The record is an 82-nucleotide RNA sequence from Cuscuta australis, which matches "Small nucleolar RNA J33" in Rfam. A search with the family's covariance model found it, with a score of 73 bits. The family has 5 seed sequences and 831 matches in Rfam 15.1. The source organism's lineage runs through Eukaryota, Viridiplantae, Streptophytina, Spermatophyta and Cuscuta sect. Cleistogrammica.
RNA sequence: CGGUUAGAGGAAUGAUGUAUUAUUACAGGGCUCUAAAGAUGCUUUCUUUCCUUGACUCUGCUUCUGAGGUGGAUGUGAGACG
Numbered sequence: 001c002g003g004u005u006a007g008a009g010g011a012a013u014g015a016u017g018u019a020u021u022a023u024u025a026c027a028g029g030g031c032u033c034u035a036a037a038g039a040u041g042c043u044u045u046c047u048u049u050c051c052u053u054g055a056c057u058c059u060g061c062u063u064c065u066g067a068g069g070u071g072g073a074u075g076u077g078a079g080a081c082g
Stems, first nucleotide, its partner, number of pairs: 001082002004079002006076001
Gene Ontology terms of the family: nucleolus and RNA processing. For this family Rfam cites "The high diversity of snoRNAs in plants: identification and comparative study of 120 snoRNA genes from Oryza sativa" (Chen et al., Nucleic Acids Res, 2003).